Small nucleolar RNA SNORA8: a 132-nucleotide RNA from Chinchilla lanigera. Rfam links the family to the GO terms RNA processing and nucleolus. A search with the family's covariance model found it, with a score of 86 bits. ACA8 is a member of the H/ACA class of snoRNA that guide the sites of modification of uridines to pseudouridines. Pairs were carried over by alignment from the consensus structure, which was predicted with RNAfold. The organism belongs to Chinchilla, within Eukaryota.
RNA sequence: CCCACUGUACGGUGUCUGCACUCAGCAGUUUACUCCUGCUGGUUUCUUAAAAGGACAGUACAGUAGAAAUUCUGGCAUUGGUGGUUUUUUGGCUUUGUGCAUGUCAUACCUGGUAUUUCUAUUGACACAGUA
Numbered sequence: 001c002c003c004a005c006u007g008u009a010c011g012g013u014g015u016c017u018g019c020a021c022u023c024a025g026c027a028g029u030u031u032a033c034u035c036c037u038g039c040u041g042g043u044u045u046c047u048u049a050a051a052a053g054g055a056c057a058g059u060a061c062a063g064u065a066g067a068a069a070u071u072c073u074g075g076c077a078u079u080g081g082u083g084g085u086u087u088u089u090u091g092g093c094u095u096u097g098u099g100c101a102u103g104u105c106a107u108a109c110c111u112g113g114u115a116u117u118u119c120u121a122u123u124g125a126c127a128c129a130g131u132a
Base pairs, nucleotide, nucleotide: 004059005058006057007056015054016053017052018047020045023042024040025039026038027037028036064121065120066119067118068117069116070115071113072112075100076099077098078097